This 186-nucleotide sequence from Listeria monocytogenes belongs to the Rfam family "Listeria sRNA rli28". Rfam's curators put it in the seed alignment.

[Rfam]
RNA sequence: UGAAGUAUGGUAUAAUAAACGUUGCAAGCAAGUUUAUGGUGGUGGCUAGCCUCUUCUCAAAGAAAGAGGUGAUGCCUAUGAUUUUUUUGUUAGGCUCUCCUGGAAAGGAUAUGCAAUGACCGUUUAUGAAGCAUUGUCUUUCGCAAUCGCUUUUGCAACCCUUGUGUUGCUCAUAAGUAGUCAAAA
Numbered sequence: 001u002g003a004a005g006u007a008u009g010g011u012a013u014a015a016u017a018a019a020c021g022u023u024g025c026a027a028g029c030a031a032g033u034u035u036a037u038g039g040u041g042g043u044g045g046c047u048a049g050c051c052u053c054u055u056c057u058c059a060a061a062g063a064a065a066g067a068g069g070u071g072a073u074g075c076c077u078a079u080g081a082u083u084u085u086u087u088u089g090u091u092a093g094g095c096u097c098u099c100c101u102g103g104a105a106a107g108g109a110u111a112u113g114c115a116a117u118g119a120c121c122g123u124u125u126a127u128g129a130a131g132c133a134u135u136g137u138c139u140u141u142c143g144c145a146a147u148c149g150c151u152u153u154u155g156c157a158a159c160c161c162u163u164g165u166g167u168u169g170c171u172c173a174u175a176a177g178u179a180g181u182c183a184a185a186a
Stems, first nucleotide, its partner, number of pairs: 042159002045156002065101001068100002071097002075093001118138003122134002125131001164182001166181002169178002